[Rfam]
RNA sequence: GCCACAUGAUGUGAUGUAGAUUGCAUUAGCACUCUGUGCAAAGCUGACCUGCUAUCUAUCACCCUUGACUGAUGGUU
Numbered sequence: 001g002c003c004a005c006a007u008g009a010u011g012u013g014a015u016g017u018a019g020a021u022u023g024c025a026u027u028a029g030c031a032c033u034c035u036g037u038g039c040a041a042a043g044c045u046g047a048c049c050u051g052c053u054a055u056c057u058a059u060c061a062c063c064c065u066u067g068a069c070u071g072a073u074g075g076u077u
Base pairs, nucleotide, nucleotide: 001076002075003074004073029039030038031037032036
Rfam assigns this 77-nucleotide RNA sequence from Sinocyclocheilus anshuiensis to the family "Small nucleolar RNA SNORD83". A reference for the family is Jady and Kiss (2000), "Characterisation of the U83 and U84 small nucleolar RNAs: two novel 2'-O-ribose methylation guide RNAs that lack complementarities to ribosomal RNAs", Nucleic Acids Res. Gene Ontology terms of the family: nucleolus and RNA processing. Taxonomically the source falls in Sinocyclocheilus (Eukaryota, Vertebrata, Teleostei, Cyprinoidei).